This 91-nucleotide RNA sequence from Mycobacterium shinjukuense belongs to the Rfam family "Glycine riboswitch aptamer".
The base pairs follow the family's consensus structure.
RNA sequence: UGAAGCGUUGCGGGAGAACCUCGAUAUCGAGGCGCCGUAGGAGCAAUCUCCUCCCCGGGAAUCUCUCAGGCCCCAGUACCGCACCGCCAAG
Numbered sequence: 001u002g003a004a005g006c007g008u009u010g011c012g013g014g015a016g017a018a019c020c021u022c023g024a025u026a027u028c029g030a031g032g033c034g035c036c037g038u039a040g041g042a043g044c045a046a047u048c049u050c051c052u053c054c055c056c057g058g059g060a061a062u063c064u065c066u067c068a069g070g071c072c073c074c075a076g077u078a079c080c081g082c083a084c085c086g087c088c089a090a091g
Stems, first nucleotide, its partner, number of pairs: 006086002009083005019032004034071003037067001041065003047058002
Dot-bracket structure: .....((.(((((.....((((......)))).((((...(((...((........))....))).).))).......))))).)).....